RNA: Mammalian CPEB3 ribozyme
Organism: Crocodylus porosus
RNA sequence: AGAGGUUGCAAGUUCAAGGCUGUAACAGAAGUGAUCAAGGAAUAGCCCUGUCAGAUUCCAACAAAUCUGCAAAUUCUGCU
Numbered sequence: 001a002g003a004g005g006u007u008g009c010a011a012g013u014u015c016a017a018g019g020c021u022g023u024a025a026c027a028g029a030a031g032u033g034a035u036c037a038a039g040g041a042a043u044a045g046c047c048c049u050g051u052c053a054g055a056u057u058c059c060a061a062c063a064a065a066u067c068u069g070c071a072a073a074u075u076c077u078g079c080u
Base pairs, nucleotide, nucleotide: 018047019046020045021044024080026078027077028076029075030074031043032042052069053068054067055066056065057064